[Rfam]
RNA sequence: UGGGCUGUCUGUAAUUAUGCACGGGCAUCCUGAAUUAACAAUUGCAUAUUGGAGUAAUUAUCAUGGCACUAAGUGCAGAAGAGAAAGCAAAAAUCUUAGCAGACUUUGGACAGGGCGAU
Number, nucleotide and partner (000 for none) at each position: 001u000002g000003g000004g000005c000006u000007g026008u025009c024010u023011g022012u021013a000014a000015u000016u000017a000018u000019g000020c000021a012022c011023g010024g009025g008026c007027a000028u000029c000030c000031u000032g000033a000034a000035u000036u000037a000038a000039c000040a000041a000042u000043u000044g000045c000046a000047u073048a000049u072050u071051g070052g069053a000054g067055u000056a000057a000058u000059u000060a000061u000062c000063a000064u000065g000066g000067c054068a000069c052070u051071a050072a049073g047074u000075g000076c000077a000078g000079a000080a000081g000082a000083g000084a000085a000086a000087g000088c000089a000090a000091a000092a000093a000094u000095c000096u000097u000098a000099g000100c000101a000102g000103a000104c000105u000106u000107u000108g000109g000110a000111c000112a000113g000114g000115g000116c000117g000118a000119u000
RNA: Ribosomal S15 leader